[Rfam]
RNA: mir-216 microRNA precursor family
RNA sequence: AAUUGGCUUAAUCUCAGCUGGCAACUGUGAGUGUCCAAUAUUGUCCCCCACAGUGGUCACUGGGAUUAUGCUAAGU
Numbered sequence: 001a002a003u004u005g006g007c008u009u010a011a012u013c014u015c016a017g018c019u020g021g022c023a024a025c026u027g028u029g030a031g032u033g034u035c036c037a038a039u040a041u042u043g044u045c046c047c048c049c050a051c052a053g054u055g056g057u058c059a060c061u062g063g064g065a066u067u068a069u070g071c072u073a074a075g076u
Base pairs, nucleotide, nucleotide: 003074004073005072006071007070009068010067011066012065013064014063015062016061017060020058021057022056023054026052027051028050029049031047